[Rfam]
RNA sequence: AAAUAAUAUAAUGUAAUACGUCGUAUAAUAUUGGGGAUAUGGCCCAAGAGUUUCUACCGAGCUGCCGUAAAUAGCUUGACUACGAGGUAAAGUUUAAAAAUG
Numbered sequence: 001a002a003a004u005a006a007u008a009u010a011a012u013g014u015a016a017u018a019c020g021u022c023g024u025a026u027a028a029u030a031u032u033g034g035g036g037a038u039a040u041g042g043c044c045c046a047a048g049a050g051u052u053u054c055u056a057c058c059g060a061g062c063u064g065c066c067g068u069a070a071a072u073a074g075c076u077u078g079a080c081u082a083c084g085a086g087g088u089a090a091a092g093u094u095u096a097a098a099a100a101u102g
Base pairs, nucleotide, nucleotide: 018088019087021085022084023083024082025081029049031047032046033045034044035043058078059077060076061075062074063073064072
Shown here is a 102-nucleotide sequence from Bacillus sp. 1NLA3E, a member of the family "Purine riboswitch aptamer". Riboswitches are metabolite binding domains within certain messenger RNAs that serve as precision sensors for their corresponding targets. On this family, see Batey et al., Nature 2004: "Structure of a natural guanine-responsive riboswitch complexed with the metabolite hypoxanthine". The match comes from Rfam's covariance-model search (93 bits).